[Rfam]
RNA sequence: UGCUCGUCGUUGGAUUUCUUUAAACGGUGCUGGGCACCCGUGCCUUGAUUUCGAGCUUUAUCCUAUAAAGUCUUUACAUUUGUAAUUUUCCCUUCCCUCUUCGAGGAUGGGUUAUACUAGUUUUGAAUAACGGAAAGCUCGCACCUUGAAUGGGUGUCUAGCCAGAAUAUUUAAGUAUCUAGCAGUAGCGUAAAGCUAUCUAUGCUAGAAACGAGGUUGGUACACUAAAUGCUCUUUGUUGUGUGUUUAGUGGUGCCGACACUUUUCACUUUAAUAAAAUUGGAGUGUUCAUAGCAGGUGUUAAUAUUUUCGAGUCGCCUGACUAAAGACGUCUGGAAUGAAGGAAUAAGACCUCUGUUCGGAUAUUUCUGAUCGAUUUUUUUGUUCGAAGCUGAGGUAAUGAUUAACAGGGACUGCCGGGGGCAUUAGUAUUGCAGCGCGAGAGGUGAAAUUCUAUGACCGUUGCAAGACUACCUACUGCGAAAGCAUUUGCCAAGAAUGUUCUUAUUAAUCAUGAACUAAAGUUAGAGGAUCGAAGGCGAUCAGAUACCGCCCUAGUUCUAACCCUAAACAAU
Numbered sequence: 001u002g003c004u005c006g007u008c009g010u011u012g013g014a015u016u017u018c019u020u021u022a023a024a025c026g027g028u029g030c031u032g033g034g035c036a037c038c039c040g041u042g043c044c045u046u047g048a049u050u051u052c053g054a055g056c057u058u059u060a061u062c063c064u065a066u067a068a069a070g071u072c073u074u075u076a077c078a079u080u081u082g083u084a085a086u087u088u089u090c091c092c093u094u095c096c097c098u099c100u101u102c103g104a105g106g107a108u109g110g111g112u113u114a115u116a117c118u119a120g121u122u123u124u125g126a127a128u129a130a131c132g133g134a135a136a137g138c139u140c141g142c143a144c145c146u147u148g149a150a151u152g153g154g155u156g157u158c159u160a161g162c163c164a165g166a167a168u169a170u171u172u173a174a175g176u177a178u179c180u181a182g183c184a185g186u187a188g189c190g191u192a193a194a195g196c197u198a199u200c201u202a203u204g205c206u207a208g209a210a211a212c213g214a215g216g217u218u219g220g221u222a223c224a225c226u227a228a229a230u231g232c233u234c235u236u237u238g239u240u241g242u243g244u245g246u247u248u249a250g251u252g253g254u255g256c257c258g259a260c261a262c263u264u265u266u267c268a269c270u271u272u273a274a275u276a277a278a279a280u281u282g283g284a285g286u287g288u289u290c291a292u293a294g295c296a297g298g299u300g301u302u303a304a305u306a307u308u309u310u311c312g313a314g315u316c317g318c319c320u321g322a323c324u325a326a327a328g329a330c331g332u333c334u335g336g337a338a339u340g341a342a343g344g345a346a347u348a349a350g351a352c353c354u355c356u357g358u359u360c361g362g363a364u365a366u367u368u369c370u371g372a373u374c375g376a377u378u379u380u381u382u383u384g385u386u387c388g389a390a391g392c393u394g395a396g397g398u399a400a401u402g403a404u405u406a407a408c409a410g411g412g413a414c415u416g417c418c419g420g421g422g423g424c425a426u427u428a429g430u431a432u433u434g435c436a437g438c439g440c441g442a443g444a445g446g447u448g449a450a451a452u453u454c455u456a457u458g459a460c461c462g463u464u465g466c467a468a469g470a471c472u473a474c475c476u477a478c479u480g481c482g483a484a485a486g487c488a489u490u491u492g493c494c495a496a497g498a499a500u501g502u503u504c505u506u507a508u509u510a511a512u513c514a515u516g517a518a519c520u521a522a523a524g525u526u527a528g529a530g531g532a533u534c535g536a537a538g539g540c541g542a543u544c545a546g547a548u549a550c551c552g553c554c555c556u557a558g559u560u561c562u563a564a565c566c567c568u569a570a571a572c573a574a575u
Stems, first nucleotide, its partner, number of pairs: 002519001004517002009512003410506004414501001418497001422494004428472002432468008443454003480487002524565006534558001538554004
Shown here is a 575-nucleotide part of an RNA from Riggia paranensis, a member of the family "Eukaryotic small subunit ribosomal RNA". Rfam links the family to the GO terms structural constituent of ribosome and ribosome. It is one of the family's seed sequences. On this family, see Yusupov et al., Science 2001: "Crystal structure of the ribosome at 5.5 A resolution".